[Rfam]
RNA sequence: GCGGAGGGCCGGAUGGCCGCUUGGGCGGGCUUCGGCCCGUCGGGGAGGAAAGUCCGGACUCCACAAGGCAACGGUGCCGGGUAACGCCCGGCUGGGGUAACCCAAGGGAAAGCGCCACAGAAAACAGACCGCGUCGGUCGAUCGCGUGCGAUCGACCUGCGUAAGGGUGAAACGGUGGGGUAAGAGCCCACCGCGGGGCUGGCAACAGCGCCGGCACGGCAAGCCCCACCGGGAGCAAUGCCAAAUAGGGACCGCGCGCGGGGCUGGUCGAGUUCGCUCGAUACCGCCCGCAGGCACGUCUUGGCCCGGCGGUCCGGGUUGGCAGCCAAAGGGGCGGUGGCAACACCGUCUUUAGAUGAAUGGUCAUCCAGGGGCGGGUUACGGCCCGCUCUGGACAGAAUCCGGCUUAUAGGCCCUCCGCGCAU
Numbered sequence: 001g002c003g004g005a006g007g008g009c010c011g012g013a014u015g016g017c018c019g020c021u022u023g024g025g026c027g028g029g030c031u032u033c034g035g036c037c038c039g040u041c042g043g044g045g046a047g048g049a050a051a052g053u054c055c056g057g058a059c060u061c062c063a064c065a066a067g068g069c070a071a072c073g074g075u076g077c078c079g080g081g082u083a084a085c086g087c088c089c090g091g092c093u094g095g096g097g098u099a100a101c102c103c104a105a106g107g108g109a110a111a112g113c114g115c116c117a118c119a120g121a122a123a124a125c126a127g128a129c130c131g132c133g134u135c136g137g138u139c140g141a142u143c144g145c146g147u148g149c150g151a152u153c154g155a156c157c158u159g160c161g162u163a164a165g166g167g168u169g170a171a172a173c174g175g176u177g178g179g180g181u182a183a184g185a186g187c188c189c190a191c192c193g194c195g196g197g198g199c200u201g202g203c204a205a206c207a208g209c210g211c212c213g214g215c216a217c218g219g220c221a222a223g224c225c226c227c228a229c230c231g232g233g234a235g236c237a238a239u240g241c242c243a244a245a246u247a248g249g250g251a252c253c254g255c256g257c258g259c260g261g262g263g264c265u266g267g268u269c270g271a272g273u274u275c276g277c278u279c280g281a282u283a284c285c286g287c288c289c290g291c292a293g294g295c296a297c298g299u300c301u302u303g304g305c306c307c308g309g310c311g312g313u314c315c316g317g318g319u320u321g322g323c324a325g326c327c328a329a330a331g332g333g334g335c336g337g338u339g340g341c342a343a344c345a346c347c348g349u350c351u352u353u354a355g356a357u358g359a360a361u362g363g364u365c366a367u368c369c370a371g372g373g374g375c376g377g378g379u380u381a382c383g384g385c386c387c388g389c390u391c392u393g394g395a396c397a398g399a400a401u402c403c404g405g406c407u408u409a410u411a412g413g414c415c416c417u418c419c420g421c422g423c424a425u
Stems, first nucleotide, its partner, number of pairs: 001421010011410001012368007020045003024041005050408003054405005059235004067302002070299001072231005077091005092106001093104004107226002112224002114220003129166002131162004136157009174192006193215001194213003198209004239324004249315006293307002297303001332351008
About this RNA: Bacterial RNase P class A: a 425-nucleotide sequence from Roseovarius nanhaiticus. The source organism's lineage runs through Bacteria, Pseudomonadota, Rhodobacterales, Roseobacteraceae and Roseovarius. By type it is a ribozyme.